A member of the RNA family "MIR2118 microRNA precursor family" from Oryza brachyantha, 171 nucleotides long. The literature on the family includes a 2008 paper in Genome Res by Zhu et al., "A diverse set of microRNAs and microRNA-like small RNAs in developing rice grains". NCBI's taxonomy places the organism under Eukaryota, Viridiplantae, Streptophytina, Euphyllophyta, Oryza. Pairs were carried over by alignment from the consensus structure, which was predicted with RNAalifold.
[Rfam]
RNA sequence: GCCGGGAAGAGUAAGAAAUUGAGUCUCUAACAGCAGUGGGAAUGGAAACAUUGAGGAAAGUCUACAUUGUCUUAUUCUCAACUAGAAUUGGGGUGAAGAUAAUGCUUUUGUGCUUUCCUAAUGCCUCCCAUUCCUAUUGUUGUUAGAUGCUCCUUUCUCUUCCUUUUGGCU
Dot-bracket structure: ........(((.(.(((...(((..((((((((((.(((((((((.(.(((.(.(((((((..................................................)))))))).)))..).))))))))).))))))))))..))).))).).))).........